RNase MRP: a 255-nucleotide sequence from Salarias fasciatus. The family's consensus secondary structure is taken from published work. Rfam links the family to the GO terms rRNA processing, ribonuclease MRP activity and ribonuclease MRP complex. RNase MRP is an enzymatically active ribonucleoprotein with two distinct roles in eukaryotes. In mitochondria it plays a direct role in the initiation of mitochondrial DNA replication. In the nucleus it is involved in precursor rRNA processing, where it cleaves the internal transcribed spacer 1 between 18S and 5.8S rRNAs. Despite distinct functions, RNase MRP has been shown to be evolutionarily related to RNase P. Like eukaryotic RNase P, RNase MRP is not catalytically active without associated protein subunits.
RNA sequence: CGGCAUUCAGAAAGCUUGCACUCUGGGCUACAUGCAGAGAACCUGGUUUCUCCCCUUCGCCCAGGGGAAAGUCCCCGGACCCGUGGCAGAAAGUGCCCUGGUUGAAUCCAGUACCGGUCUGUCGCUGCGCCACCACGAGCUGAGAUGCUCUGCGAGCGGAGCUCGGUGCUCACAGACCGGGAUUGUCAGCAUUCAGAGUAAUGCAAGAAAGCUGUCGAGGCAUCUCAACACAACGGGGCUCAUUCUCUGAAUGCU
Numbered sequence: 001c002g003g004c005a006u007u008c009a010g011a012a013a014g015c016u017u018g019c020a021c022u023c024u025g026g027g028c029u030a031c032a033u034g035c036a037g038a039g040a041a042c043c044u045g046g047u048u049u050c051u052c053c054c055c056u057u058c059g060c061c062c063a064g065g066g067g068a069a070a071g072u073c074c075c076c077g078g079a080c081c082c083g084u085g086g087c088a089g090a091a092a093g094u095g096c097c098c099u100g101g102u103u104g105a106a107u108c109c110a111g112u113a114c115c116g117g118u119c120u121g122u123c124g125c126u127g128c129g130c131c132a133c134c135a136c137g138a139g140c141u142g143a144g145a146u147g148c149u150c151u152g153c154g155a156g157c158g159g160a161g162c163u164c165g166g167u168g169c170u171c172a173c174a175g176a177c178c179g180g181g182a183u184u185g186u187c188a189g190c191a192u193u194c195a196g197a198g199u200a201a202u203g204c205a206a207g208a209a210a211g212c213u214g215u216c217g218a219g220g221c222a223u224c225u226c227a228a229c230a231c232a233a234c235g236g237g238g239c240u241c242a243u244u245c246u247c248u249g250a251a252u253g254c255u
Stems, first nucleotide, its partner, number of pairs: 002255010015207005022065007037052005070240002073238004085097004098111004114180009127169003137164004147157004210225002213222003